Annotation: The record is a 122-nucleotide sequence from Mus musculus, which matches "Small nucleolar RNA SNORA24" in Rfam. From the family's description: ACA24 is a member of the H/ACA class of snoRNA that guide the sites of modification of uridines to pseudouridines. Taxonomically the source falls in Mus (Eukaryota, Opisthokonta, Mammalia, Boreoeutheria). The family's RNA type in Rfam is H/ACA-box small nucleolar RNA. The family's consensus secondary structure was predicted with RNAfold.
RNA sequence: CCCUGUGUUCCUGGGACCCAUCUUCUGUAGCCAUCUUCCCCCACAGUAGAGCAUGGCUUUGUUUUUAACAAAGCUGUCACUGUUUAGUUGGUACCAGCUUCUAAUUUGCACAGGUAACAGUU
Numbered sequence: 001c002c003c004u005g006u007g008u009u010c011c012u013g014g015g016a017c018c019c020a021u022c023u024u025c026u027g028u029a030g031c032c033a034u035c036u037u038c039c040c041c042c043a044c045a046g047u048a049g050a051g052c053a054u055g056g057c058u059u060u061g062u063u064u065u066u067a068a069c070a071a072a073g074c075u076g077u078c079a080c081u082g083u084u085u086a087g088u089u090g091g092u093a094c095c096a097g098c099u100u101c102u103a104a105u106u107u108g109c110a111c112a113g114g115u116a117a118c119a120g121u122u
Stems, first nucleotide, its partner, number of pairs: 003046005013039004021030001060119004065113002069108003074097003079092004